Record summary
The record is a 143-nucleotide RNA sequence from Serratia symbiotica, which matches "isrN Hfq binding RNA" in Rfam. A search with the family's covariance model found it, with a score of 122 bits. Rfam classes the family as a small RNA. The family's consensus secondary structure was predicted with WAR. For this family Rfam cites "Small RNAs encoded within genetic islands of Salmonella typhimurium show host-induced expression and role in virulence" (Padalon-Brauch et al., Nucleic Acids Res, 2008). The family has 17 seed sequences and 141 matches in Rfam 15.1.
[Rfam]
RNA sequence: GAAUCACGGGCUCGUCACGCCGGGUAUCGGGCUGAUAGAAAAAUACUGUCCUGCUCAGUGAUAACGUCCUGCAUGCCUGACGUGUGCUCAUCGCAAACUGCGAGACCAGAUAACGGACGAACUCACGCUUUAUCACUGGUUUU
Numbered sequence: 001g002a003a004u005c006a007c008g009g010g011c012u013c014g015u016c017a018c019g020c021c022g023g024g025u026a027u028c029g030g031g032c033u034g035a036u037a038g039a040a041a042a043a044u045a046c047u048g049u050c051c052u053g054c055u056c057a058g059u060g061a062u063a064a065c066g067u068c069c070u071g072c073a074u075g076c077c078u079g080a081c082g083u084g085u086g087c088u089c090a091u092c093g094c095a096a097a098c099u100g101c102g103a104g105a106c107c108a109g110a111u112a113a114c115g116g117a118c119g120a121a122c123u124c125a126c127g128c129u130u131u132a133u134c135a136c137u138g139g140u141u142u143u
Base pairs, nucleotide, nucleotide: 025112026111027110028109030107031106048077050075052073053072054071058067059066060065081102082101083100116141117140118139120137
Dot-bracket structure: ........................((((.((................(.(.(((...(((....)))...))).).)...(((................)))...)).))))...(((.(................).)))..